[Rfam]
RNA: Mammalian CPEB3 ribozyme
RNA sequence: UGCAAGUUUGAGAGGCCACGGCAGAUGUGCUCGUGGCGUGGCCAUGUCGGAUUCCAACAAAUCUGCAAAUUCUGCU
Numbered sequence: 001u002g003c004a005a006g007u008u009u010g011a012g013a014g015g016c017c018a019c020g021g022c023a024g025a026u027g028u029g030c031u032c033g034u035g036g037c038g039u040g041g042c043c044a045u046g047u048c049g050g051a052u053u054c055c056a057a058c059a060a061a062u063c064u065g066c067a068a069a070u071u072c073u074g075c076u
Stems, first nucleotide, its partner, number of pairs: 014043004020076006027039003048065006
Dot-bracket structure: .............[[[[..((((((.(((.......)))]]]]....((((((......)))))).....))))))